[Rfam]
RNA sequence: CUCUGGAAAGACAGCUCUGCGACAGGGGCUGCGCCCACGGUGCAAGCCGCCCUCCGGCGGUGAACCUCUCAGGCAGAGAUGACAGAG
Dot-bracket structure: (((((......((((............)))).(((.(..(.(...((((........))))....).))..)))........)))))